[Rfam]
The record is a 53-nucleotide sequence from Elioraea sp. Yellowstone, which matches "serC leader" in Rfam.
The organism belongs to Elioraea, within Bacteria.
RNA sequence: CAGCGGGUCACGCCCCCCCACCGGGGCGCUUCGCUUCUGGAAGGGAGCAUCCG
Numbered sequence: 001c002a003g004c005g006g007g008u009c010a011c012g013c014c015c016c017c018c019c020a021c022c023g024g025g026g027c028g029c030u031u032c033g034c035u036u037c038u039g040g041a042a043g044g045g046a047g048c049a050u051c052c053g
Base pairs, nucleotide, nucleotide: 011028012027013026014025015024016023033048034047035046036045037044038043

This family is a putative regulatory RNA structure that is found upstream of the serC-serA operon in some alpha-proteobacteria. The final stem of the structure overlaps the ribosome binding site of the serC reading frame. On this family, see Corbino et al., Genome Biol 2005: "Evidence for a second class of S-adenosylmethionine riboswitches and other regulatory RNA motifs in alpha-proteobacteria". Gene Ontology term of the family: regulation of gene expression.